[Rfam]
RNA: Small nucleolar RNA SNORD53/SNORD92
RNA sequence: AUGCUAUGAUGAUCACUUCAACUGUGGUUUCAACUCACCGACUGUUGAAUGAGGACAUGAAAUUCCUUGGCUGUGUCUGAGCAU
Number, nucleotide and partner (000 for none) at each position: 001a084002u083003g082004c081005u000006a000007u000008g000009a000010u000011g000012a000013u000014c000015a000016c000017u000018u000019c000020a000021a000022c000023u000024g000025u000026g000027g000028u000029u000030u000031c000032a000033a000034c000035u000036c000037a000038c000039c000040g000041a000042c000043u000044g000045u000046u000047g000048a000049a000050u000051g000052a000053g000054g000055a000056c000057a000058u000059g000060a000061a000062a000063u000064u000065c000066c000067u000068u000069g000070g000071c000072u000073g000074u000075g000076u000077c000078u000079g000080a000081g004082c003083a002084u001